This 90-nucleotide RNA from Thermomonospora echinospora belongs to the Rfam family "Selenocysteine transfer RNA". The family has 109 seed sequences and 4,211 matches in Rfam 15.1. NCBI's taxonomy places the organism under Bacteria, Bacillati, Streptosporangiales, Thermomonosporaceae, Thermomonospora. It scores 48 bits against the family's covariance model.
RNA sequence: CGGAGAGUUCGCAUAGUGGACUAGUGCAGGCGCCUUGAAAGCGCCCAGGGCUGGGGACAGUCCUCGUGGGUUCGAAUCCCACACUCUCCG
Numbered sequence: 001c002g003g004a005g006a007g008u009u010c011g012c013a014u015a016g017u018g019g020a021c022u023a024g025u026g027c028a029g030g031c032g033c034c035u036u037g038a039a040a041g042c043g044c045c046c047a048g049g050g051c052u053g054g055g056g057a058c059a060g061u062c063c064u065c066g067u068g069g070g071u072u073c074g075a076a077u078c079c080c081a082c083a084c085u086c087u088c089c090g
Base pairs, nucleotide, nucleotide: 001090002089003088004087005086006085007084008083011027012026013025014023015022016021029045030044031043032042033041047064048063049062050061051060067081068080069079070078

Background
The family's consensus secondary structure is taken from published work.